[Rfam]
This 87-nucleotide RNA sequence from Gossypium stocksii belongs to the Rfam family "MIR7486 microRNA precursor family". Rfam links the family to the GO terms RISC complex and miRNA-mediated post-transcriptional gene silencing. The family's consensus secondary structure was predicted with RNAalifold.
RNA sequence: CCCGAGGAAGUGUUUUUGCCACGUAGGCCAAAAACACUUCCUUGAGGACGCGUUUUUGUCCUACAUGGCAAAAACGCUUCCUCGGGG
Dot-bracket structure: (((((((((((((((((((((.(((((.(((((((.(..((....))..).))))))).))))).))))))))))))))))))))).